The record is a 106-nucleotide RNA from Otolemur garnettii, which matches "Y RNA" in Rfam. Y RNAs are components of the Ro ribonucleoprotein particle (Ro RNP), in association with Ro60 and La proteins.

RNA sequence: AGCUGGUCCUGGUGCAGUGGUGUUUACAACUGAUUGAUCACCGCCAGUUAGUUACAGAUUCCUUUGUUCUCUCUCCUCUCCCUCUGCUUCACUUGACUAGCCUUAA
Numbered sequence: 001a002g003c004u005g006g007u008c009c010u011g012g013u014g015c016a017g018u019g020g021u022g023u024u025u026a027c028a029a030c031u032g033a034u035u036g037a038u039c040a041c042c043g044c045c046a047g048u049u050a051g052u053u054a055c056a057g058a059u060u061c062c063u064u065u066g067u068u069c070u071c072u073c074u075c076c077u078c079u080c081c082c083u084c085u086g087c088u089u090c091a092c093u094u095g096a097c098u099a100g101c102c103u104u105a106a
Base pairs, nucleotide, nucleotide: 002101003100004099005098006097007096008095011093014090016085017084019082020081022080028068029067030066032064033063
Record summary: Pairs were carried over by alignment from the consensus structure, which is taken from published work.